[Rfam]
Nucleotides: 201
Base pairs, nucleotide, nucleotide: 007100008099015095016094017093018092025082026081027080028079029078030077036072037071038070047069048068049067050066051065052064103128104127105126106125107124108123109122130140131139132138156165157164158163170198171197172196173195181194182193183192184191185190
Number, partner (000 for none) and nucleotide at each position: 001000u002000u003000a004000a005000a006000u007100u008099c009000u010000a011000u012000g013000a014000a015095g016094a017093g018092a019000a020000a021000a022000g023000u024000a025082u026081c027080u028079a029078u030077a031000g032000u033000g034000u035000u036072u037071u038070u039000u040000a041000u042000a043000g044000c045000g046000a047069u048068c049067a050066g051065g052064a053000g054000a055000u056000g057000g058000u059000g060000a061000a062000a063000g064052u065051c066050c067049u068048g069047a070038a071037g072036a073000a074000a075000c076000u077030u078029a079028u080027a081026g082025a083000g084000a085000a086000a087000a088000a089000g090000g091000g092018u093017c094016u095015c096000u097000g098000a099008g100007a101000a102000u103128c104127u105126u106125a107124u108123u109122c110000g111000a112000g113000c114000u115000u116000u117000g118000g119000c120000a121000a122109g123108a124107g125106u126105a127104a128103g129000a130140c131139g132138c133000u134000a135000a136000c137000u138132g139131c140130g141000u142000u143000a144000a145000a146000g147000u148000u149000u150000c151000g152000a153000g154000u155000g156165g157164a158163c159000u160000u161000a162000u163158g164157u165156c166000a167000a168000u169000u170198a171197g172196a173195g174000u175000g176000g177000u178000a179000c180000c181194g182193c183192g184191g185190a186000u187000u188000a189000c190185u191184c192183c193182g194181u195173c196172u197171c198170u199000u200000g201000u
This 201-nucleotide RNA sequence from Natranaerovirga pectinivora belongs to the Rfam family "T-box leader". NCBI's taxonomy places the organism under Bacteria, Bacillati, Bacillota, Natranaerovirgaceae, Natranaerovirga. The base pairs follow the family's consensus structure, which is taken from published work. The literature on the family includes a 1994 paper in J Bacteriol by Grundy et al., "Interaction between the acceptor end of tRNA and the T box stimulates antitermination in the Bacillus subtilis tyrS gene: a new role for the discriminator base".